[Rfam]
RNA: Alphaproteobacterial sRNA BjrC1505
RNA sequence: UUUUACGCGUUUACCUCUCAUUAAUCUUUCCAAAGUAUAAAGAAAGUCAUCCAGUCAUCUGGAUUUGAGUGGCUCCUGUCCACUCUGUUUGACGCCUCCCUGUUAAAGACUUCAGAGCCGCAACCGUGCGGCUCUUUUUUU
Numbered sequence: 001u002u003u004u005a006c007g008c009g010u011u012u013a014c015c016u017c018u019c020a021u022u023a024a025u026c027u028u029u030c031c032a033a034a035g036u037a038u039a040a041a042g043a044a045a046g047u048c049a050u051c052c053a054g055u056c057a058u059c060u061g062g063a064u065u066u067g068a069g070u071g072g073c074u075c076c077u078g079u080c081c082a083c084u085c086u087g088u089u090u091g092a093c094g095c096c097u098c099c100c101u102g103u104u105a106a107a108g109a110c111u112u113c114a115g116a117g118c119c120g121c122a123a124c125c126g127u128g129c130g131g132c133u134c135u136u137u138u139u140u141u
Base pairs, nucleotide, nucleotide: 001046002045003044004043022037023036025034027032050063051062052061053060067085068084069083070082071081072080091104092103093102094101114135115134116133117132118131119130120129121128122127